The record is a 78-nucleotide RNA sequence from Acidocella sp. MX-AZ02, which matches "ZMP/ZTP riboswitch aptamer (pfl RNA motif)" in Rfam. The base pairs follow the family's consensus structure, which is taken from published work. Rfam links the family to the GO terms one-carbon metabolic process and regulation of purine nucleotide biosynthetic process. Lineage of the source: Bacteria > Pseudomonadati > Pseudomonadota > Alphaproteobacteria > Acidocella.
RNA sequence: CGGCCCGCACGUGACUGGCGCUCAGAUGGCUACCAUCGGGGAGCGUGGGGGAGUUCGCCGCGCGCCUGGGCAUUGCAU
Numbered sequence: 001c002g003g004c005c006c007g008c009a010c011g012u013g014a015c016u017g018g019c020g021c022u023c024a025g026a027u028g029g030c031u032a033c034c035a036u037c038g039g040g041g042a043g044c045g046u047g048g049g050g051g052a053g054u055u056c057g058c059c060g061c062g063c064g065c066c067u068g069g070g071c072a073u074u075g076c077a078u
Base pairs, nucleotide, nucleotide: 004051005050006049008047009046010045011044012043015040016039017066018065019064020063021062026036027035028034029033057071058070059069